[Rfam]
RNA sequence: UGGUCAUUACCAAGGCUGCUAGGAUGUUGUUUCUGGUGAGCUGUGGACAUGACCGUAAAGCAAGUCCCUCAGACUCUUGAAUUGCCACAUUAUGUGGCACCAAGUCUGCUGGGAAUAAAG
Numbered sequence: 001u002g003g004u005c006a007u008u009a010c011c012a013a014g015g016c017u018g019c020u021a022g023g024a025u026g027u028u029g030u031u032u033c034u035g036g037u038g039a040g041c042u043g044u045g046g047a048c049a050u051g052a053c054c055g056u057a058a059a060g061c062a063a064g065u066c067c068c069u070c071a072g073a074c075u076c077u078u079g080a081a082u083u084g085c086c087a088c089a090u091u092a093u094g095u096g097g098c099a100c101c102a103a104g105u106c107u108g109c110u111g112g113g114a115a116u117a118a119a120g
Base pairs, nucleotide, nucleotide: 003053004052005051006050007049010046011045012044026041027040028039068113069112070111071110072106073105074104075103083099084098085097
A member of the RNA family "Small nucleolar RNA SNORA32" from Fulmarus glacialis, 120 nucleotides long. Rfam classes the family as an H/ACA-box small nucleolar RNA. The family's consensus secondary structure was predicted with RNAfold. From the family's description: ACA32 is a member of the H/ACA class of snoRNA that guide the sites of modification of uridines to pseudouridines. Rfam links the family to the GO terms nucleolus and RNA processing.